Rfam assigns this 93-nucleotide RNA from Nicotiana sylvestris to the family "Small nucleolar RNA SNORD24". NCBI's taxonomy places the organism under Eukaryota, Streptophytina, Tracheophyta, eudicotyledons, Nicotiana. By type it is a C/D-box small nucleolar RNA. The match comes from Rfam's covariance-model search (51 bits).
RNA sequence: GGCCGGUGAUGUUAAAAAGAUAUUUGCUACUUUUGAUAGGGAUUUACAAAAUUUCCAUCUGAUGAUUCCUUAUCCACCAAGACCUCCGAGGCC
Numbered sequence: 001g002g003c004c005g006g007u008g009a010u011g012u013u014a015a016a017a018a019g020a021u022a023u024u025u026g027c028u029a030c031u032u033u034u035g036a037u038a039g040g041g042a043u044u045u046a047c048a049a050a051a052u053u054u055c056c057a058u059c060u061g062a063u064g065a066u067u068c069c070u071u072a073u074c075c076a077c078c079a080a081g082a083c084c085u086c087c088g089a090g091g092c093c
Stems, first nucleotide, its partner, number of pairs: 001093004

A reference for the family is Qu et al. (1995), "U24, a novel intron-encoded small nucleolar RNA with two 12 nt long, phylogenetically conserved complementarities to 28S rRNA", Nucleic Acids Res.